[Rfam]
RNA sequence: GGGGAUGAUCGGUUUCGACAGGGGAUGUUGAAACAGGGGAAGCGAGCCGAGGAACGCGGCAAUGAUCUCGUUAACCACGUGUCGCAAAAAAAUAAUCGCCAACUCUAAGCGCGAUUCCCAGCAGUUCGCUCUCGCUGCCUAAUAAGCACCGAUAGCGCUUGGGUGUCAGACCGGGGAGUUCCCGACCCGGACCCUGGCAUAAUCUAGGGAACUCAACCGUCCGCCCGGGCUGCGGGGGCGGAUGGGAAAUCAAACAGCAGCUGGGCCUGUUGGCGGCUUGUCCGCGUGACCGCCAGGGCCGAGAAAAGCACAGCGGACUGCGCUCGGAGAAGCCCUGAAUUAACUCCACUGGACCCGGGUUCGAUUCCCGCCAUCUCCACCA
Numbered sequence: 001g002g003g004g005a006u007g008a009u010c011g012g013u014u015u016c017g018a019c020a021g022g023g024g025a026u027g028u029u030g031a032a033a034c035a036g037g038g039g040a041a042g043c044g045a046g047c048c049g050a051g052g053a054a055c056g057c058g059g060c061a062a063u064g065a066u067c068u069c070g071u072u073a074a075c076c077a078c079g080u081g082u083c084g085c086a087a088a089a090a091a092a093u094a095a096u097c098g099c100c101a102a103c104u105c106u107a108a109g110c111g112c113g114a115u116u117c118c119c120a121g122c123a124g125u126u127c128g129c130u131c132u133c134g135c136u137g138c139c140u141a142a143u144a145a146g147c148a149c150c151g152a153u154a155g156c157g158c159u160u161g162g163g164u165g166u167c168a169g170a171c172c173g174g175g176g177a178g179u180u181c182c183c184g185a186c187c188c189g190g191a192c193c194c195u196g197g198c199a200u201a202a203u204c205u206a207g208g209g210a211a212c213u214c215a216a217c218c219g220u221c222c223g224c225c226c227g228g229g230c231u232g233c234g235g236g237g238g239c240g241g242a243u244g245g246g247a248a249a250u251c252a253a254a255c256a257g258c259a260g261c262u263g264g265g266c267c268u269g270u271u272g273g274c275g276g277c278u279u280g281u282c283c284g285c286g287u288g289a290c291c292g293c294c295a296g297g298g299c300c301g302a303g304a305a306a307a308g309c310a311c312a313g314c315g316g317a318c319u320g321c322g323c324u325c326g327g328a329g330a331a332g333c334c335c336u337g338a339a340u341u342a343a344c345u346c347c348a349c350u351g352g353a354c355c356c357g358g359g360u361u362c363g364a365u366u367c368c369c370g371c372c373a374u375c376u377c378c379a380c381c382a
Stems, first nucleotide, its partner, number of pairs: 001378007019351003023347003028342001030341002034337005043326005048070005056085005130154001132152003136148003164199006171190004178212006217245009228262006264300005275291002280318004356370004
Dot-bracket structure: (((((((...........(((.(((..(.((..(((((....((((((((((...[[[[[.....)))))..........]]]]]............................................(.(((.(((.......))).))).).........((((((.((((...[[[[[[...))))...)))))).......]]]]]]....(((((((((..[[[[[[...)))))))))...........]]]]]].(((((......((...[[[[......))....)))))..............]]]]...)))))......)))))..)))..))).)))....((((.......)))).)))))))....